[Rfam]
RNA sequence: GAGUGGCGGUGAAGAUACCGUCUACCCGCAAUGGGACGAAAAGACCCCAUGAACCUUUACUAUAGCUUAACAUUGAUAAUAGGUAGAUAUUGUGUAGGAUAGGUGGGAGGCUACGCAAGUAGCCGCCGGUGAAAUACCACCCUUUAUCUAUGUGUUAUCUAAUCUUUGGGAGCAAGGAGACAGUGUUUGGUGGGUAGUUUGACUGGGACGGUCGCCUCCUAAAAAGUAACGGAGGCUUUCAAAGGUACCCUCAAUACGGAUGGUAAUCGUAUGUGGAGUGCAAUAGCAUAAGGGUGCUUGACUGUGAGACAAACAAGUCGAGCAGGGUCGAAAGACGGAUAUAGUGAUCCGGUGGUUCCGCAUGGAAGGGCCAUCGCUCAAAGGAUAAAAGGUACUCUGGGGAUAACAGGCUGAUCUCCCCCAAGAGCUCAUAUCGACGGGGAGGUUUGGCACCUCGAUGUCGGCUCGUCACAACCUGGAGCCGAAGCUGGUUCCAAGGGUUGGGCUGUUCGCCCAUUAAAGUGGCACGCGAGCUGGGUUCAGAACGUCGUGAGACAGUUCGGUUUCUAUCUAUUGCGGGCGUU
Numbered sequence: 001g002a003g004u005g006g007c008g009g010u011g012a013a014g015a016u017a018c019c020g021u022c023u024a025c026c027c028g029c030a031a032u033g034g035g036a037c038g039a040a041a042a043g044a045c046c047c048c049a050u051g052a053a054c055c056u057u058u059a060c061u062a063u064a065g066c067u068u069a070a071c072a073u074u075g076a077u078a079a080u081a082g083g084u085a086g087a088u089a090u091u092g093u094g095u096a097g098g099a100u101a102g103g104u105g106g107g108a109g110g111c112u113a114c115g116c117a118a119g120u121a122g123c124c125g126c127c128g129g130u131g132a133a134a135u136a137c138c139a140c141c142c143u144u145u146a147u148c149u150a151u152g153u154g155u156u157a158u159c160u161a162a163u164c165u166u167u168g169g170g171a172g173c174a175a176g177g178a179g180a181c182a183g184u185g186u187u188u189g190g191u192g193g194g195u196a197g198u199u200u201g202a203c204u205g206g207g208a209c210g211g212u213c214g215c216c217u218c219c220u221a222a223a224a225a226g227u228a229a230c231g232g233a234g235g236c237u238u239u240c241a242a243a244g245g246u247a248c249c250c251u252c253a254a255u256a257c258g259g260a261u262g263g264u265a266a267u268c269g270u271a272u273g274u275g276g277a278g279u280g281c282a283a284u285a286g287c288a289u290a291a292g293g294g295u296g297c298u299u300g301a302c303u304g305u306g307a308g309a310c311a312a313a314c315a316a317g318u319c320g321a322g323c324a325g326g327g328u329c330g331a332a333a334g335a336c337g338g339a340u341a342u343a344g345u346g347a348u349c350c351g352g353u354g355g356u357u358c359c360g361c362a363u364g365g366a367a368g369g370g371c372c373a374u375c376g377c378u379c380a381a382a383g384g385a386u387a388a389a390a391g392g393u394a395c396u397c398u399g400g401g402g403a404u405a406a407c408a409g410g411c412u413g414a415u416c417u418c419c420c421c422c423a424a425g426a427g428c429u430c431a432u433a434u435c436g437a438c439g440g441g442g443a444g445g446u447u448u449g450g451c452a453c454c455u456c457g458a459u460g461u462c463g464g465c466u467c468g469u470c471a472c473a474a475c476c477u478g479g480a481g482c483c484g485a486a487g488c489u490g491g492u493u494c495c496a497a498g499g500g501u502u503g504g505g506c507u508g509u510u511c512g513c514c515c516a517u518u519a520a521a522g523u524g525g526c527a528c529g530c531g532a533g534c535u536g537g538g539u540u541c542a543g544a545a546c547g548u549c550g551u552g553a554g555a556c557a558g559u560u561c562g563g564u565u566u567c568u569a570u571c572u573a574u575u576g577c578g579g580g581c582g583u584u
Stems, first nucleotide, its partner, number of pairs: 005022005025580008034572003038567002046401004051397002053393005059198004066190002069187004075159007083151007092142001102141005109124003163178003201213004214236006237382001239339002245297006251277002254272006278287002302325004308319003327336003350376007358369002410451003414448001415445007425435002462537001463535004467529001468526005475500002478495006502516005543561004547556003
Shown here is a 584-nucleotide part of an RNA from Candidatus Cardinium hertigii, a member of the family "Bacterial large subunit ribosomal RNA".